[Rfam]
Nucleotides: 135
Base pairs, nucleotide, nucleotide: 011120012119013118014117018031019030020029032115033114034113035112036111037110043048050101051100052099058079059078060077061076062075063074064073082095083094
Number, partner (000 for none) and nucleotide at each position: 001000a002000u003000u004000a005000a006000u007000a008000a009000g010000u011120u012119g013118c014117c015000g016000a017000a018031u019030u020029u021000c022000a023000g024000c025000g026000u027000u028000g029020a030019a031018a032115a033114c034113g035112g036111g037110g038000g039000a040000a041000c042000c043048a044000u045000u046000u047000u048043u049000u050101g051100g052099g053000u054000g055000a056000a057000u058079u059078a060077u061076u062075c063074u064073u065000g066000c067000a068000u069000a070000a071000a072000a073064g074063g075062g076061a077060a078059u079058a080000u081000a082095g083094g084000g085000a086000a087000c088000c089000u090000u091000u092000a093000a094083c095082c096000g097000a098000a099052u100051c101050c102000u103000c104000a105000g106000c107000u108000a109000a110037c111036u112035c113034c114033g115032u116000a117014g118013g119012c120011a121000u122000u123000g124000a125000a126000g127000g128000g129000a130000g131000a132000a133000c134000a135000a